[Rfam]
RNA sequence: GCUAAAGGAGUGGAGCUCCUUGAAGUCCAAUAGAGGAUCUUGAUGGGUAGAUUGAGCUGCUGAGCUAUGGAUCCCACAGCCCUAUAAGCAGAGAUUAUAAUUUUGGAUAGGCUUGUGGCUUGCAUAUCUCAGGAGCUUCAUUACCUUGUAUUAGAUCCUUGUUUGGAUUGAAGGGAGCUCUACAUCUCUCUCUC
Numbered sequence: 001g002c003u004a005a006a007g008g009a010g011u012g013g014a015g016c017u018c019c020u021u022g023a024a025g026u027c028c029a030a031u032a033g034a035g036g037a038u039c040u041u042g043a044u045g046g047g048u049a050g051a052u053u054g055a056g057c058u059g060c061u062g063a064g065c066u067a068u069g070g071a072u073c074c075c076a077c078a079g080c081c082c083u084a085u086a087a088g089c090a091g092a093g094a095u096u097a098u099a100a101u102u103u104u105g106g107a108u109a110g111g112c113u114u115g116u117g118g119c120u121u122g123c124a125u126a127u128c129u130c131a132g133g134a135g136c137u138u139c140a141u142u143a144c145c146u147u148g149u150a151u152u153a154g155a156u157c158c159u160u161g162u163u164u165g166g167a168u169u170g171a172a173g174g175g176a177g178c179u180c181u182a183c184a185u186c187u188c189u190c191u192c193u194c
Stems, first nucleotide, its partner, number of pairs: 013180008024169006036157001057135002060132003066126004074118001

Shown here is a 194-nucleotide sequence from Ricinus communis, a member of the family "MIR159 microRNA precursor family".
The organism belongs to Ricinus, within Eukaryota.